Record summary:
This 358-nucleotide RNA sequence from Pseudorhodobacter sp. PARRP1 belongs to the Rfam family "Alphaproteobacteria transfer-messenger RNA". Lineage of the source: Bacteria > Pseudomonadati > Rhodobacterales > Paracoccaceae > Pseudorhodobacter. It is annotated as a non-coding RNA gene.

[Rfam]
RNA sequence: CACCUUGCACCCCGCGCCCCGCCGCCCUAUAUUGGCCCUGUCGGGGGCAACCCCAACUAUGGCGAUAAACGCACCCAUAAUAAACGGCUCGGACCCGGGGGCGGUACCCGGCGACUCCACCAAUUCACCCUUUCAUUUGGGGCGUGUGGGGUCGAAACAGGAUCGACGAACGUCUAAAGGGGCCAGCUUUUGCUCGGUGAGGUACUACCGUUAUCGGUCCAAACGUACAGUUGCAAAUGACAACCGUGCUCCGGCAAUGGCUCUGGCUGCGUAAGCAGUUCGGGUCGCCGAAACUAAGUCCUUGCGCUUAGCCGCGUAAGGCGGGGUCCGCCGGAACCUGGCAACAGAAUCCGGCACU
Dot-bracket structure: .......................................((.((((....)))).))...(((((.....((.(((........((..(((...(((((.......)))))(((((((.............................)))))))............))).)).......)))...))..)))))((((..[[.[[[)))).....]]]]].......................................................................................................[[[[..((((((]]]]..........))))))...
Numbered sequence: 001c002a003c004c005u006u007g008c009a010c011c012c013c014g015c016g017c018c019c020c021g022c023c024g025c026c027c028u029a030u031a032u033u034g035g036c037c038c039u040g041u042c043g044g045g046g047g048c049a050a051c052c053c054c055a056a057c058u059a060u061g062g063c064g065a066u067a068a069a070c071g072c073a074c075c076c077a078u079a080a081u082a083a084a085c086g087g088c089u090c091g092g093a094c095c096c097g098g099g100g101g102c103g104g105u106a107c108c109c110g111g112c113g114a115c116u117c118c119a120c121c122a123a124u125u126c127a128c129c130c131u132u133u134c135a136u137u138u139g140g141g142g143c144g145u146g147u148g149g150g151g152u153c154g155a156a157a158c159a160g161g162a163u164c165g166a167c168g169a170a171c172g173u174c175u176a177a178a179g180g181g182g183c184c185a186g187c188u189u190u191u192g193c194u195c196g197g198u199g200a201g202g203u204a205c206u207a208c209c210g211u212u213a214u215c216g217g218u219c220c221a222a223a224c225g226u227a228c229a230g231u232u233g234c235a236a237a238u239g240a241c242a243a244c245c246g247u248g249c250u251c252c253g254g255c256a257a258u259g260g261c262u263c264u265g266g267c268u269g270c271g272u273a274a275g276c277a278g279u280u281c282g283g284g285u286c287g288c289c290g291a292a293a294c295u296a297a298g299u300c301c302u303u304g305c306g307c308u309u310a311g312c313c314g315c316g317u318a319a320g321g322c323g324g325g326g327u328c329c330g331c332c333g334g335a336a337c338c339u340g341g342c343a344a345c346a347g348a349a350u351c352c353g354g355c356a357c358u
Stems, first nucleotide, its partner, number of pairs: 040057002043054004061194005071187002074182003085172002089169003095111005112154007195210004201220002204218003324339004330355006